Record summary:
Rfam assigns this 314-nucleotide RNA sequence from Lachancea mirantina to the family "Nuclear RNase P". The source organism's lineage runs through Eukaryota, Dikarya, Ascomycota, saccharomyceta and Lachancea. The match comes from Rfam's covariance-model search (68 bits).
RNA sequence: AACACCAGCAUUUCUACAUUUUACCUGCUGGCAGAAACGCUUAAAUUGCGCAUCAAAGCAGGUGGGAAAUUCGGUGAAACGUUGCGAAGCCCUUGAAUGCCAAGGCACCCAAUUUAGGUUGCCGACCUCCGUGAGGAGAGCCAUUGGAAAAUGGUUGUGGGUGCUGUUAUCAGAAAUUUACAAAUCGUAAGAUUUGAUGGGAAUGACAGUGGACGCUUCGCUUGACACGAAUCCGCAACGGGUUCGAAGUCUGUUGAGUGCAAUUGUAGGACACUGCUAUUGCGGUGAACGCGAUACCGAUUACUGUUGGUGUU
Numbered sequence: 001a002a003c004a005c006c007a008g009c010a011u012u013u014c015u016a017c018a019u020u021u022u023a024c025c026u027g028c029u030g031g032c033a034g035a036a037a038c039g040c041u042u043a044a045a046u047u048g049c050g051c052a053u054c055a056a057a058g059c060a061g062g063u064g065g066g067a068a069a070u071u072c073g074g075u076g077a078a079a080c081g082u083u084g085c086g087a088a089g090c091c092c093u094u095g096a097a098u099g100c101c102a103a104g105g106c107a108c109c110c111a112a113u114u115u116a117g118g119u120u121g122c123c124g125a126c127c128u129c130c131g132u133g134a135g136g137a138g139a140g141c142c143a144u145u146g147g148a149a150a151a152u153g154g155u156u157g158u159g160g161g162u163g164c165u166g167u168u169a170u171c172a173g174a175a176a177u178u179u180a181c182a183a184a185u186c187g188u189a190a191g192a193u194u195u196g197a198u199g200g201g202a203a204u205g206a207c208a209g210u211g212g213a214c215g216c217u218u219c220g221c222u223u224g225a226c227a228c229g230a231a232u233c234c235g236c237a238a239c240g241g242g243u244u245c246g247a248a249g250u251c252u253g254u255u256g257a258g259u260g261c262a263a264u265u266g267u268a269g270g271a272c273a274c275u276g277c278u279a280u281u282g283c284g285g286u287g288a289a290c291g292c293g294a295u296a297c298c299g300a301u302u303a304c305u306g307u308u309g310g311u312g313u314u
Base pairs, nucleotide, nucleotide: 001314002313003312004311007308008307009306012271013270014269015268016267017266018265023063024062025061026060027059038050039049040048072299073298074297075296076295080215081214082213083212127138128137129136130135140155141154142153143152144151145150162211163210164209165208166207167206168205181196182195183194272287273286274285275284276283277282